[Rfam]
The record is a 157-nucleotide sequence from Collinsella stercoris, which matches "RT-2 RNA" in Rfam. Rfam classes the family as a small RNA. NCBI's taxonomy places the organism under Bacteria, Coriobacteriia, Coriobacteriaceae, Collinsella, Collinsella stercoris.
RNA sequence: CGGGCGCGUGCCCGUAAAUUUGCACCCCGAGACGGUUGCCGUUCGCUUCUUGCAUGGCGCGGGAUUUGGCACCUGCCCGCGCUUCAUGGUCAUCCGUCAAGCGGCUUGCGGGUGCCGCAUGAAGCCGUUCGGGGUGCCUCCCAUGAACUCUGAUGAG
Numbered sequence: 001c002g003g004g005c006g007c008g009u010g011c012c013c014g015u016a017a018a019u020u021u022g023c024a025c026c027c028c029g030a031g032a033c034g035g036u037u038g039c040c041g042u043u044c045g046c047u048u049c050u051u052g053c054a055u056g057g058c059g060c061g062g063g064a065u066u067u068g069g070c071a072c073c074u075g076c077c078c079g080c081g082c083u084u085c086a087u088g089g090u091c092a093u094c095c096g097u098c099a100a101g102c103g104g105c106u107u108g109c110g111g112g113u114g115c116c117g118c119a120u121g122a123a124g125c126c127g128u129u130c131g132g133g134g135u136g137c138c139u140c141c142c143a144u145g146a147a148c149u150c151u152g153a154u155g156a157g
Base pairs, nucleotide, nucleotide: 001014002013003012004011022137023136024135025134026133027132028131029130031129032097033096034095035094037092038091039089040088045053046052056083057082058081059080060079061078062077101128102127103126104125105124